[Rfam]
RNA sequence: UACAGCUGUACAGGUGUAGUGCACCUACAGCUGUACAGGUGUAGUGCACCUACAGCUGUACAGGUGUAGUGCACCUACAGCUGUACAGGUGAAGUGCACCUACAGCUGUACA
Numbered sequence: 001u002a003c004a005g006c007u008g009u010a011c012a013g014g015u016g017u018a019g020u021g022c023a024c025c026u027a028c029a030g031c032u033g034u035a036c037a038g039g040u041g042u043a044g045u046g047c048a049c050c051u052a053c054a055g056c057u058g059u060a061c062a063g064g065u066g067u068a069g070u071g072c073a074c075c076u077a078c079a080g081c082u083g084u085a086c087a088g089g090u091g092a093a094g095u096g097c098a099c100c101u102a103c104a105g106c107u108g109u110a111c112a
Stems, first nucleotide, its partner, number of pairs: 002059008011030001016028004037051005076110001079107004087101005
Rfam assigns this 112-nucleotide sequence from Oncorhynchus tshawytscha to the family "Xanthomonas sRNA sX2". The organism belongs to Oncorhynchus, within Eukaryota. The literature on the family includes a 2011 paper in Nucleic Acids Res by Schmidtke et al., "Genome-wide transcriptome analysis of the plant pathogen Xanthomonas identifies sRNAs with putative virulence functions". The family's RNA type in Rfam is small RNA. A search with the family's covariance model found it, with a score of 41 bits. The family's consensus secondary structure was predicted with CMfinder.